[Rfam]
RNA sequence: UUUUAGCCCCGAUAGUAGCGGUAUCCUUUUCUUUUUUUCUUUAAAAAAGAAAAGAUACAAGCGAAUAGCGGGAAAUAGC
Numbered sequence: 001u002u003u004u005a006g007c008c009c010c011g012a013u014a015g016u017a018g019c020g021g022u023a024u025c026c027u028u029u030u031c032u033u034u035u036u037u038u039c040u041u042u043a044a045a046a047a048a049g050a051a052a053a054g055a056u057a058c059a060a061g062c063g064a065a066u067a068g069c070g071g072g073a074a075a076u077a078g079c
Base pairs, nucleotide, nucleotide: 009071010070011069013067014066018062019061023056024055025054029051030050031049032048033047034046035045036044
Shown here is a 79-nucleotide RNA from Flavobacterium muglaense, a member of the family "Flavo-1 RNA".
The organism belongs to Flavobacterium, within Bacteria.